[Rfam]
The family of this 227-nucleotide part of an RNA from Candidatus Saccharibacteria bacterium RAAC3_TM7_1 is "Bacterial large subunit ribosomal RNA". The organism belongs to Candidatus Saccharimonadota, within Bacteria. The family's consensus secondary structure is taken from published work. It scores 2523 bits against the family's covariance model.
RNA sequence: GAGUUAAUUUCUAGAGCAAGGUUAAGUCAAGUGACGGAGCCAUAGUGAAAGCGAGCCUGAAUAGGGCGAAUUAGUUCUAGGGAUUAGACCCGAAACCAGGUGACCUAACCAUGGGCAGGUUGAAGCGACAGUAACAUGUCGUGAAGGACCGAACCAGUGUCGUGUAACAGGCUUGGAUGACCUGUGGUUAGCGGUGAAAUGCCAUUCGAACUUGGAGAUAGCUGGUU
Numbered sequence: 001g002a003g004u005u006a007a008u009u010u011c012u013a014g015a016g017c018a019a020g021g022u023u024a025a026g027u028c029a030a031g032u033g034a035c036g037g038a039g040c041c042a043u044a045g046u047g048a049a050a051g052c053g054a055g056c057c058u059g060a061a062u063a064g065g066g067c068g069a070a071u072u073a074g075u076u077c078u079a080g081g082g083a084u085u086a087g088a089c090c091c092g093a094a095a096c097c098a099g100g101u102g103a104c105c106u107a108a109c110c111a112u113g114g115g116c117a118g119g120u121u122g123a124a125g126c127g128a129c130a131g132u133a134a135c136a137u138g139u140c141g142u143g144a145a146g147g148a149c150c151g152a153a154c155c156a157g158u159g160u161c162g163u164g165u166a167a168c169a170g171g172c173u174u175g176g177a178u179g180a181c182c183u184g185u186g187g188u189u190a191g192c193g194g195u196g197a198a199a200u201g202c203c204a205u206u207c208g209a210a211c212u213u214g215g216a217g218a219u220a221g222c223u224g225g226u227u
Base pairs, nucleotide, nucleotide: 005086006085007084008083009082010081011080012079013078014077015076016075017074020041021040022039023038026035027034028033045052046051055067056066057065058064089225090224092222096215097214098213099212100211101210105191106190107189108188109187110186111185112184113183114182115181116179118150119149120148121147125142126141127140128139129138130137154176155175156174159172160171161170193203194202195201